RNA sequence: ACUACUUGAUGAAAAUAUGGCAUAGCCGGGUAAUAAAGUAAUUUAUUACUUACUUUUUGCUGUAUGCUGGAAACUCCUUAAAGUCAAAUUAGCUAGAUCGAUAUACUUAUUUUAUAUUGUAAUCAGAAACAUUAAUUUGAAUUGGACAAUCAGCAGGAAACCUUUCCGAGAUAUAAAAAGGGAUCCUCAGAGACUACACGCGAAACAUCCUAUUUAUAUAUAAUAUAUAAAGGAUGAAGAUAUAGUCCAGCUCUUUGGAAACAAUAGAG
Numbered sequence: 001a002c003u004a005c006u007u008g009a010u011g012a013a014a015a016u017a018u019g020g021c022a023u024a025g026c027c028g029g030g031u032a033a034u035a036a037a038g039u040a041a042u043u044u045a046u047u048a049c050u051u052a053c054u055u056u057u058u059g060c061u062g063u064a065u066g067c068u069g070g071a072a073a074c075u076c077c078u079u080a081a082a083g084u085c086a087a088a089u090u091a092g093c094u095a096g097a098u099c100g101a102u103a104u105a106c107u108u109a110u111u112u113u114a115u116a117u118u119g120u121a122a123u124c125a126g127a128a129a130c131a132u133u134a135a136u137u138u139g140a141a142u143u144g145g146a147c148a149a150u151c152a153g154c155a156g157g158a159a160a161c162c163u164u165u166c167c168g169a170g171a172u173a174u175a176a177a178a179a180g181g182g183a184u185c186c187u188c189a190g191a192g193a194c195u196a197c198a199c200g201c202g203a204a205a206c207a208u209c210c211u212a213u214u215u216a217u218a219u220a221u222a223a224u225a226u227a228u229a230a231a232g233g234a235u236g237a238a239g240a241u242a243u244a245g246u247c248c249a250g251c252u253c254u255u256u257g258g259a260a261a262c263a264a265u266a267g268a269g
Stems, first nucleotide, its partner, number of pairs: 002030002007025001009023002034045003055205004060200001065155006075146003156186002161181004169174001190248001192247005208234004213229001215227002253267002255264003

Overview:
Rfam assigns this 269-nucleotide RNA from Tilletia controversa to the family "Group I catalytic intron". A search with the family's covariance model found it, with a score of 80 bits. The base pairs follow the family's consensus structure, which is taken from published work. Taxonomically the source falls in Tilletia (Eukaryota, Opisthokonta, Fungi, Ustilaginomycotina). Rfam 15.1 lists 5,602 matches to the family in 1,395 species. The literature on the family includes a 1996 paper in Science by Cate et al., "Crystal structure of a group I ribozyme domain: principles of RNA packing".